This 153-nucleotide sequence from Bradyrhizobium sp. STM 3843 belongs to the Rfam family "flg-Rhizobiales RNA". The organism belongs to Bradyrhizobium, within Bacteria. A search with the family's covariance model found it, with a score of 103 bits. The family's consensus secondary structure is taken from published work.
RNA sequence: CGAACCCGCAAGGCUUGGGAGAGCUGACACGGGUUCGAGAUCACCCGUUAACGAUCGCCUUGGGAGAGGCGCCGCUUUCGGGAUUCGCUAAAAGGGGAGCUUGACCGAUGGAGAAUGCGCUUCUCGUCGGAUUGUCGCGGCAGAUGGUGCUGG
Numbered sequence: 001c002g003a004a005c006c007c008g009c010a011a012g013g014c015u016u017g018g019g020a021g022a023g024c025u026g027a028c029a030c031g032g033g034u035u036c037g038a039g040a041u042c043a044c045c046c047g048u049u050a051a052c053g054a055u056c057g058c059c060u061u062g063g064g065a066g067a068g069g070c071g072c073c074g075c076u077u078u079c080g081g082g083a084u085u086c087g088c089u090a091a092a093a094g095g096g097g098a099g100c101u102u103g104a105c106c107g108a109u110g111g112a113g114a115a116u117g118c119g120c121u122u123c124u125c126g127u128c129g130g131a132u133u134g135u136c137g138c139g140g141c142a143g144a145u146g147g148u149g150c151u152g153g
Base pairs, nucleotide, nucleotide: 001037002036003035004034005033006032007031008030009026012025013024014023015022016021044082045081046080047079050078051077057070058069059068060067061066105130106129107128108127109126111125112124113123114122115121